RNA sequence: CUUGACCGAGCCCAGCCACAGCGGCCGGUCGGCGGGCCGCCGCUGCCCGUAGGUGGCGAUGAGCGCCUGCGCCUC
Numbered sequence: 001c002u003u004g005a006c007c008g009a010g011c012c013c014a015g016c017c018a019c020a021g022c023g024g025c026c027g028g029u030c031g032g033c034g035g036g037c038c039g040c041c042g043c044u045g046c047c048c049g050u051a052g053g054u055g056g057c058g059a060u061g062a063g064c065g066c067c068u069g070c071g072c073c074u075c
Stems, first nucleotide, its partner, number of pairs: 015025003032070002038065002044059001047056003
The record is a 75-nucleotide RNA sequence from Actinomadura verrucosospora, which matches "ASpks TB sRNA" in Rfam. It is annotated as an antisense RNA. The family's consensus secondary structure is taken from published work. The family has 77 seed sequences and 9,052 matches in Rfam 15.1. Taxonomically the source falls in Actinomadura (Bacteria, Bacillati, Actinomycetota, Actinomycetes). The match comes from Rfam's covariance-model search (78 bits).